[Rfam]
Nucleotides: 140
Base pairs, nucleotide, nucleotide: 002062003061004060006058007057018053019048020047021046023044024043025041027039028038029037065129066128069125070124071123073120074119075118081109082108083107084106085105
Number, partner (000 for none) and nucleotide at each position: 001000u002062g003061c004060a005000g006058u007057g008000u009000u010000a011000c012000a013000g014000u015000a016000c017000c018053u019048g020047c021046a022000c023044c024043c025041a026000g027039c028038a029037g030000c031000c032000u033000u034000c035000u036000c037029c038028u039027g040000g041025u042000g043024g044023g045000a046021u047020g048019u049000u050000c051000a052000a053018g054000a055000a056000g057007c058006a059000g060004u061003g062002c063000u064000a065129c066128a067000c068000c069125a070124g071123u072000g073120c074119a075118g076000c077000a078000u079000u080000u081109g082108g083107c084106a085105u086000g087000c088000u089000u090000g091000g092000u093000u094000u095000u096000c097000a098000g099000u100000c101000u102000g103000c104000a105085g106084u107083g108082u109081c110000u111000g112000u113000u114000a115000g116000a117000c118075c119074u120073g121000g122000u123071a124070u125069u126000u127000c128066u129065g130000c131000u132000a133000a134000a135000a136000c137000a138000g139000a140000a